[Rfam]
The record is a 35-nucleotide RNA sequence from Lentivirus equinfane, which matches "ribosomal frameshift site" in Rfam. The organism belongs to Lentivirus equinfane, within Viruses. A reference for the family is Hatfield et al. (1992), "Translational suppression in retroviral gene expression", Adv Virus Res. Its family is annotated with viral translational frameshifting in the Gene Ontology. The sequence is in the family's curated seed alignment.
RNA sequence: GGGGCUCAGGGGAGGCCCCAAAAACAAACUUUCCC
Numbered sequence: 001g002g003g004g005c006u007c008a009g010g011g012g013a014g015g016c017c018c019c020a021a022a023a024a025c026a027a028a029c030u031u032u033c034c035c
Base pairs, nucleotide, nucleotide: 001019002018003017004016005015